[Rfam]
The record is a 78-nucleotide RNA from Triplophysa rosa, which matches "mir-27 microRNA precursor family" in Rfam. The source organism's lineage runs through Eukaryota, Bilateria, Osteoglossocephalai, Cypriniformes and Triplophysa. Rfam links the family to the GO terms miRNA-mediated post-transcriptional gene silencing and RISC complex. The match comes from Rfam's covariance-model search (71 bits). A reference for the family is Chen et al. (2005), "The developmental miRNA profiles of zebrafish as determined by small RNA cloning", Genes Dev.

RNA sequence: AGCGGGUGCAGAGCUUGGCUGAUUGGUGAACGUGUAUGGACUUUUUUUUGUUCACAGUGGCUAAGUUCUUCACCUGGA
Numbered sequence: 001a002g003c004g005g006g007u008g009c010a011g012a013g014c015u016u017g018g019c020u021g022a023u024u025g026g027u028g029a030a031c032g033u034g035u036a037u038g039g040a041c042u043u044u045u046u047u048u049u050g051u052u053c054a055c056a057g058u059g060g061c062u063a064a065g066u067u068c069u070u071c072a073c074c075u076g077g078a
Base pairs, nucleotide, nucleotide: 011068012067013066014065015064016063017062018061019060020059026055027054028053029052030051031050032049